[Rfam]
RNA: Ribosomal protein L10 leader
RNA sequence: AUUGAAUAUAAAUCCAAACCAAAGACCGUAGGAGAUUCAUAAGAAUCCUAACAAGUCCUACCGAGGUUGGAGUAAGCAUACGCUGACCUCAACUGUGAUAACAGAACCUCCGGACUUCUUUGGGUACGGAGGUAUUUUUAUGAAAAG
Numbered sequence: 001a002u003u004g005a006a007u008a009u010a011a012a013u014c015c016a017a018a019c020c021a022a023a024g025a026c027c028g029u030a031g032g033a034g035a036u037u038c039a040u041a042a043g044a045a046u047c048c049u050a051a052c053a054a055g056u057c058c059u060a061c062c063g064a065g066g067u068u069g070g071a072g073u074a075a076g077c078a079u080a081c082g083c084u085g086a087c088c089u090c091a092a093c094u095g096u097g098a099u100a101a102c103a104g105a106a107c108c109u110c111c112g113g114a115c116u117u118c119u120u121u122g123g124g125u126a127c128g129g130a131g132g133u134a135u136u137u138u139u140a141u142g143a144a145a146a147g
Stems, first nucleotide, its partner, number of pairs: 028061006034047003107132006114125003